[Rfam]
This 87-nucleotide sequence from Apostasia shenzhenica belongs to the Rfam family "Small nucleolar RNA SNORD25". Its Rfam clan is "SNORD25 clan". Rfam classes the family as a C/D-box small nucleolar RNA. Rfam 15.1 lists 985 matches to the family in 241 species. A search with the family's covariance model found it, with a score of 64 bits. Gene Ontology terms of the family: nucleolus and RNA processing. On this family, see Qu et al., Nucleic Acids Res 2001: "Identification of 10 novel snoRNA gene clusters from Arabidopsis thaliana".
RNA sequence: GACAACUAUGAUGAUUGUAUACAGACCUGUAAUGAUCCAUUCGGAGAUGAUCGCAUCUUUGUUGAACAUCUAAGGGACUGAGUUGUU
Numbered sequence: 001g002a003c004a005a006c007u008a009u010g011a012u013g014a015u016u017g018u019a020u021a022c023a024g025a026c027c028u029g030u031a032a033u034g035a036u037c038c039a040u041u042c043g044g045a046g047a048u049g050a051u052c053g054c055a056u057c058u059u060u061g062u063u064g065a066a067c068a069u070c071u072a073a074g075g076g077a078c079u080g081a082g083u084u085g086u087u
Stems, first nucleotide, its partner, number of pairs: 002086005
Dot-bracket structure: .(((((...........................................................................))))).